[Rfam]
RNA sequence: UAGAUAUUUUAAGCGCCAUGCACCUUCUGGAACGGAACCCUGUUUAUCAAAGAUAAGGAGGAUUAGAAGGUUAACGAGGUGGAAAGUGAUCGAAAAUUCGGCGGAUGCUUUCCCGUGGCUUUGGACACGUGAUGUACAGAAAAAAACUGUGAGUAAUCGCAGAACAAAGGCUGUACAGCCAAAGAUA
Numbered sequence: 001u002a003g004a005u006a007u008u009u010u011a012a013g014c015g016c017c018a019u020g021c022a023c024c025u026u027c028u029g030g031a032a033c034g035g036a037a038c039c040c041u042g043u044u045u046a047u048c049a050a051a052g053a054u055a056a057g058g059a060g061g062a063u064u065a066g067a068a069g070g071u072u073a074a075c076g077a078g079g080u081g082g083a084a085a086g087u088g089a090u091c092g093a094a095a096a097u098u099c100g101g102c103g104g105a106u107g108c109u110u111u112c113c114c115g116u117g118g119c120u121u122u123g124g125a126c127a128c129g130u131g132a133u134g135u136a137c138a139g140a141a142a143a144a145a146a147c148u149g150u151g152a153g154u155a156a157u158c159g160c161a162g163a164a165c166a167a168a169g170g171c172u173g174u175a176c177a178g179c180c181a182a183a184g185a186u187a
Stems, first nucleotide, its partner, number of pairs: 022071007030063001081113005090101004114129004119124001133177007147162006
Overview
Shown here is a 187-nucleotide RNA sequence from Anaerostipes rhamnosivorans, a member of the family "glmS glucosamine-6-phosphate activated ribozyme aptamer". Rfam classes the family as a riboswitch. A reference for the family is Winkler et al. (2004), "Control of gene expression by a natural metabolite-responsive ribozyme", Nature.